[Rfam]
RNA sequence: AAUAUUGCUGCGGUUAAAAAGCUCGUAGUUGGAUUUGAGCUCCGGCCGGUGUCAGCAGGGUCGUGGUACGGUCUCUGUCUGUGCCGGUGCCGGGCUUCUGGUUGUCGGGUGGCCGGCCGGGACGGCGGCUGUUGGCUCUUGGGGUGACCCUUGGGCUGUGGCUGCUGGCCUGGUGGCAAGGCGCUCGGUUGAGUUUACUUUGAGAAAAGGAGAGUGCUUAAGGCAGGCUUGUUAUGUCUGUGGAUCUCGGUGCAUGGAAUAAUGGAACAGGGCCUCGCGCCUGUGUUUGUUAGUUUCGGGGUGCCCCGAGGCAAUGAUUAAGAGGGACGGUUCGGGGGCAUUCGUACUGUAGGGGGAGAGGUGAAAUUCUUGGAUCCCUGCAAUACGAACAACUGCGAAACGAUUUGCCAAGGACGUCCUUAUUAAUCAAGAACGAAAGUUAGAGGUUCGAAGGCGAUCAGAUACCGCCCUAGUUCUGACUGUAAACGAUGCCAACUGACAAUCGGCCCCUGGUCGCGAGUAAGACGGGGUUGGCAGCCUCCGGGAAACCAAAGUUUUUGGGUUCCGGGGGGAGUAUGGUUGCAAAGCUGAAACUUAAAG
Numbered sequence: 001a002a003u004a005u006u007g008c009u010g011c012g013g014u015u016a017a018a019a020a021g022c023u024c025g026u027a028g029u030u031g032g033a034u035u036u037g038a039g040c041u042c043c044g045g046c047c048g049g050u051g052u053c054a055g056c057a058g059g060g061u062c063g064u065g066g067u068a069c070g071g072u073c074u075c076u077g078u079c080u081g082u083g084c085c086g087g088u089g090c091c092g093g094g095c096u097u098c099u100g101g102u103u104g105u106c107g108g109g110u111g112g113c114c115g116g117c118c119g120g121g122a123c124g125g126c127g128g129c130u131g132u133u134g135g136c137u138c139u140u141g142g143g144g145u146g147a148c149c150c151u152u153g154g155g156c157u158g159u160g161g162c163u164g165c166u167g168g169c170c171u172g173g174u175g176g177c178a179a180g181g182c183g184c185u186c187g188g189u190u191g192a193g194u195u196u197a198c199u200u201u202g203a204g205a206a207a208a209g210g211a212g213a214g215u216g217c218u219u220a221a222g223g224c225a226g227g228c229u230u231g232u233u234a235u236g237u238c239u240g241u242g243g244a245u246c247u248c249g250g251u252g253c254a255u256g257g258a259a260u261a262a263u264g265g266a267a268c269a270g271g272g273c274c275u276c277g278c279g280c281c282u283g284u285g286u287u288u289g290u291u292a293g294u295u296u297c298g299g300g301g302u303g304c305c306c307c308g309a310g311g312c313a314a315u316g317a318u319u320a321a322g323a324g325g326g327a328c329g330g331u332u333c334g335g336g337g338g339c340a341u342u343c344g345u346a347c348u349g350u351a352g353g354g355g356g357a358g359a360g361g362u363g364a365a366a367u368u369c370u371u372g373g374a375u376c377c378c379u380g381c382a383a384u385a386c387g388a389a390c391a392a393c394u395g396c397g398a399a400a401c402g403a404u405u406u407g408c409c410a411a412g413g414a415c416g417u418c419c420u421u422a423u424u425a426a427u428c429a430a431g432a433a434c435g436a437a438a439g440u441u442a443g444a445g446g447u448u449c450g451a452a453g454g455c456g457a458u459c460a461g462a463u464a465c466c467g468c469c470c471u472a473g474u475u476c477u478g479a480c481u482g483u484a485a486a487c488g489a490u491g492c493c494a495a496c497u498g499a500c501a502a503u504c505g506g507c508c509c510c511u512g513g514u515c516g517c518g519a520g521u522a523a524g525a526c527g528g529g530g531u532u533g534g535c536a537g538c539c540u541c542c543g544g545g546a547a548a549c550c551a552a553a554g555u556u557u558u559u560g561g562g563u564u565c566c567g568g569g570g571g572g573a574g575u576a577u578g579g580u581u582g583c584a585a586a587g588c589u590g591a592a593a594c595u596u597a598a599a600g
Stems, first nucleotide, its partner, number of pairs: 011567003019564001021434001023432002028427003324421003328416002331414003337409004343387002348382007358369003439480006449473001453469004491563003494556003498539001500537001503534008513526003543550002569596003578589004

The family of this 600-nucleotide part of an RNA from Eosentomon sp. FNSA-2002 is "Eukaryotic small subunit ribosomal RNA". The sequence is in the family's curated seed alignment. Taxonomically the source falls in Eosentomon (Eukaryota, Bilateria, Protostomia, Pancrustacea).